This 68-nucleotide RNA sequence from Scytalopus superciliaris belongs to the Rfam family "mir-144 microRNA precursor family".
The base pairs follow the family's consensus structure, which was predicted with RNAalifold.
For this family Rfam cites "The developmental miRNA profiles of zebrafish as determined by small RNA cloning" (Chen et al., Genes Dev, 2005).
Gene Ontology terms of the family: RISC complex and miRNA-mediated post-transcriptional gene silencing.
RNA sequence: GCUCCGAGCAGGAUAUCAUCGUAUACUGUAAGUUGGCUAUGAGACACUACAGUAUAGAUGAUGUACUC
Dot-bracket structure: .........((.((((((((.(((((((((.(((........)))..))))))))))))))))).)).